[Rfam]
RNA sequence: GUGCUGUGAUGCAAUUAUAUCAACGCCUCAUUCUGAAAUGUUAUGUGGAAGAUUGAUGACUGAGCAUG
Number, nucleotide and partner (000 for none) at each position: 001g067002u066003g065004c064005u000006g000007u000008g000009a000010u000011g000012c000013a000014a000015u000016u000017a000018u000019a000020u000021c000022a000023a000024c000025g000026c000027c000028u000029c000030a000031u000032u000033c000034u000035g000036a000037a000038a000039u000040g000041u000042u000043a000044u000045g000046u000047g000048g000049a000050a000051g000052a000053u000054u000055g000056a000057u000058g000059a000060c000061u000062g000063a000064g004065c003066a002067u001068g000
Shown here is a 68-nucleotide RNA from Anolis carolinensis, a member of the family "Small nucleolar RNA SNORD63".
Rfam's curators write: snoRNA U63 is found in both humans and mice.
NCBI's taxonomy places the organism under Eukaryota, Deuterostomia, Amniota, Anolidae, Anolis.
Rfam classes the family as a C/D-box small nucleolar RNA.